[Rfam]
RNase MRP: a 466-nucleotide RNA sequence from Botrytis porri. The match comes from Rfam's covariance-model search (112 bits). For this family Rfam cites "Secondary structure of RNase MRP RNA as predicted by phylogenetic comparison" (Schmitt et al., FASEB J, 1993).
RNA sequence: UUCUCGCUCAAAGAAUCGCAUUCGAAGCACACAAACAGAAAUAUCUUCAUCGAUGUUUCAUUCUACUCUUAUGCUUUGGGAGAAAGUCCCCGGACACCCUUCUUUCUAAAAGUUAGGAUUGCGGAAACGCGCCGCCAUAGAAGCACUUGCGGCUUCUCUUCUACCAAUUCUUUACCUUCAAUUUCAUCCAUCCUUUUGCCGUUAUUACUAUUGCCACGAGGCUUCUUGACACUUGGAUUCGGAGCAUGGGAGACCACAUGGAUGAAGAUAUGAGUCCGAGCUUCUGUGUAAUGUUUCCAAUUGACUUAGAGAAGAGUGGUAAUGGGAGGUGGAAGACAUGUUCUUGAUUGGGGUAGGAGUGCCAAUGGUAGUCGAGGCUAUUCGUCGAGAUUGACAGUUAUGCGAUUGCUUUCCUUUGCUGCAAAGCUGGGAAAGUAACUCGAUGGGGCUUAUUCUUGAUGCGAGA
Dot-bracket structure: .((((((((((..((((((..(((((((.........(((((((........))))))).............)))))).)...[[[.[[[[............................((((....))))...................................................................................................................................................(((((...(....(((.........((.......................................((.(...).))...))....)))..)...)).)))......................)))))).((((((...............)))))).........]]]]]]]....)))).))))))
The family's consensus secondary structure is taken from published work. The source organism's lineage runs through Eukaryota, Fungi, saccharomyceta, Sclerotiniaceae and Botrytis. RNase MRP is an enzymatically active ribonucleoprotein with two distinct roles in eukaryotes.